Bacterial small subunit ribosomal RNA: a 586-nucleotide part of an RNA from Spirochaeta africana.
[Rfam]
RNA sequence: UGACGGGGGCCCGCACAAGCGGUGGAGCAUGUGGUUUAAUUCGAUGAUACGCGAGGAACCUUACCAGGGCUUGACAUUGAGCGACCGGCAUAGAGAUAUGCCUUCCCUUCGGGGCGCGAAAACAGGUGCUGCAUGGCUGUCGUCAGCUCGUGCCGUGAGGUGUUGGGUUAAGUCCCGCAACGAGCGCAACCCCUGCUGUCUGUUGCUAUCAGGUAAAGCUGAGGACUCAGACGGAACUGCCGGUGACAAACCGGAGGAAGGUGGGGACGACGUCAAGUCAUCAUGGCCCUUAUGUCCUGGGCUACACACGUGCUACAAUGGCCGAUACAGAGCGACGCGAAACCGCGAGGUGGAGCAAAUCGCAGAAAGUCGGCCUCAGUUCGGAUUGGAGUCUGAAACUCGACUCCAUGAAGGUGGAAUCGCUAGUAAUCGCGCAUCAGAACGGCGCGGUGAAUACGUUCCCGGGCCUUGUACACACCGCCCGUCACACCACCCGAGUUGGGGGUACCCGAAGUCACUAGUCUAACCAGCAAUGGAGGACGGUGCCGAAGGUAUGCCUGGUAAGGGGGGUGAAGUCGUAACAAGG
Numbered sequence: 001u002g003a004c005g006g007g008g009g010c011c012c013g014c015a016c017a018a019g020c021g022g023u024g025g026a027g028c029a030u031g032u033g034g035u036u037u038a039a040u041u042c043g044a045u046g047a048u049a050c051g052c053g054a055g056g057a058a059c060c061u062u063a064c065c066a067g068g069g070c071u072u073g074a075c076a077u078u079g080a081g082c083g084a085c086c087g088g089c090a091u092a093g094a095g096a097u098a099u100g101c102c103u104u105c106c107c108u109u110c111g112g113g114g115c116g117c118g119a120a121a122a123c124a125g126g127u128g129c130u131g132c133a134u135g136g137c138u139g140u141c142g143u144c145a146g147c148u149c150g151u152g153c154c155g156u157g158a159g160g161u162g163u164u165g166g167g168u169u170a171a172g173u174c175c176c177g178c179a180a181c182g183a184g185c186g187c188a189a190c191c192c193c194u195g196c197u198g199u200c201u202g203u204u205g206c207u208a209u210c211a212g213g214u215a216a217a218g219c220u221g222a223g224g225a226c227u228c229a230g231a232c233g234g235a236a237c238u239g240c241c242g243g244u245g246a247c248a249a250a251c252c253g254g255a256g257g258a259a260g261g262u263g264g265g266g267a268c269g270a271c272g273u274c275a276a277g278u279c280a281u282c283a284u285g286g287c288c289c290u291u292a293u294g295u296c297c298u299g300g301g302c303u304a305c306a307c308a309c310g311u312g313c314u315a316c317a318a319u320g321g322c323c324g325a326u327a328c329a330g331a332g333c334g335a336c337g338c339g340a341a342a343c344c345g346c347g348a349g350g351u352g353g354a355g356c357a358a359a360u361c362g363c364a365g366a367a368a369g370u371c372g373g374c375c376u377c378a379g380u381u382c383g384g385a386u387u388g389g390a391g392u393c394u395g396a397a398a399c400u401c402g403a404c405u406c407c408a409u410g411a412a413g414g415u416g417g418a419a420u421c422g423c424u425a426g427u428a429a430u431c432g433c434g435c436a437u438c439a440g441a442a443c444g445g446c447g448c449g450g451u452g453a454a455u456a457c458g459u460u461c462c463c464g465g466g467c468c469u470u471g472u473a474c475a476c477a478c479c480g481c482c483c484g485u486c487a488c489a490c491c492a493c494c495c496g497a498g499u500u501g502g503g504g505g506u507a508c509c510c511g512a513a514g515u516c517a518c519u520a521g522u523c524u525a526a527c528c529a530g531c532a533a534u535g536g537a538g539g540a541c542g543g544u545g546c547c548g549a550a551g552g553u554a555u556g557c558c559u560g561g562u563a564a565g566g567g568g569g570g571u572g573a574a575g576u577c578g579u580a581a582c583a584a585g586g
Base pairs, nucleotide, nucleotide: 001475002474003472004471005470007469008468009467010466011465012464013463015459016458019423020422021421022420023419024316026314027313028312029311030310031309032308033307034305035304040055041054042053043052064300065299066298067297068296069295070294077122078121081117082116083115087102088101089100090099091098092097105114106113107112125289126288128287129286130285131284134283135282136278137277138276139274141272142271146185147184148183149182150181151180152161153160154159164177165176166175167174191266192265193264194263196234197233198232199231200230201229202228206223207222210221211220212219237257238256240254241253242252243251244250320375321374322373323372324371325370326369332363333362334361337356338355342351343350344349382413387408388407389406390405391404392403393402429451430450431449432448433447434446435445478585480582483578484577488572489571490570491569493567494566495565498562499561500560501559502558503557505555506554507553508552509551514547516545517544518543519542521541522540523539524538527536528535
Notes: The family has 99 seed sequences and 42,628 matches in Rfam 15.1. Its family is annotated with ribosome and structural constituent of ribosome in the Gene Ontology.